[Rfam]
RNA sequence: CUGCACGUAGCUACCCCGGGCACUCCGAUUUUCAUUGAGGAUCCUGCCCUAUGCUGGUGCUAAAACGAAUCCUGUUUGUGUUACUUGAUCUGUGAACCUCCCGCAUUUCAAGCGUCAAUAAACUCAGGUACAGUU
Number, nucleotide and partner (000 for none) at each position: 001c000002u000003g060004c059005a058006c057007g000008u000009a000010g054011c053012u000013a000014c000015c000016c000017c000018g049019g048020g047021c046022a045023c000024u041025c040026c039027g000028a000029u000030u000031u000032u000033c000034a000035u000036u000037g000038a000039g026040g025041a024042u000043c000044c000045u022046g021047c020048c019049c018050u000051a000052u000053g011054c010055u000056g000057g006058u005059g004060c003061u000062a000063a000064a000065a000066c000067g000068a000069a000070u000071c128072c127073u126074g125075u000076u122077u121078g000079u117080g116081u000082u114083a000084c112085u111086u110087g109088a000089u000090c000091u105092g104093u103094g000095a000096a000097c000098c000099u000100c000101c000102c000103g093104c092105a091106u000107u000108u000109c087110a086111a085112g084113c000114g082115u000116c080117a079118a000119u000120a000121a077122a076123c000124u000125c074126a073127g072128g071129u000130a000131c000132a000133g000134u000135u000
RNA: small nucleolar RNA snoR134